[Rfam]
tRNA: a 68-nucleotide RNA. Rfam's curators write: Transfer RNA (tRNA) molecules are approximately 80 nucleotides in length. Their secondary structure includes four short double-helical elements and three loops (D, anti-codon, and T loops). Further hydrogen bonds mediate the characteristic L-shaped molecular structure. tRNAs have two regions of fundamental functional importance: the anti-codon, which is responsible for specific mRNA codon recognition, and the 3' end, to which the tRNAs corresponding amino acid is attached (by aminoacyl-tRNA synthetases). tRNAs cope with the degeneracy of the genetic code in two manners: having more than one tRNA (with a specific anti-codon) for a particular amino acid; and 'wobble' base-pairing, i.e. permitting non-standard base-pairing at the 3rd anti-codon position. It is annotated as a transfer RNA.

RNA sequence: GCUAUCGUAGCUUAAUUAAAGUUUAAUACUGAAGAUAUUAGGAUGGACCCUAGAAAGUCCCGAAAGCA
Numbered sequence: 001g002c003u004a005u006c007g008u009a010g011c012u013u014a015a016u017u018a019a020a021g022u023u024u025a026a027u028a029c030u031g032a033a034g035a036u037a038u039u040a041g042g043a044u045g046g047a048c049c050c051u052a053g054a055a056a057g058u059c060c061c062g063a064a065a066g067c068a
Stems, first nucleotide, its partner, number of pairs: 001067003005063003010022004024040005045060004